[Rfam]
RNA sequence: ACCUGUUCGAAAGUGGCUGUGGCAUGGUUGUUGUCAGGUCAUUGAUAAUGCAGGAAGAUGGAACUGACAGAUUUUCCCUGUGUUUGUUGGGCCGUCUUCCCUCUCAAACCCUGUAUCUUUCAGACA
Dot-bracket structure: .((((((....(((((((..((((.......)))).)))))))...)..)))))..........(((.(((..........(((((..(((.......)))...)))))......))).)))....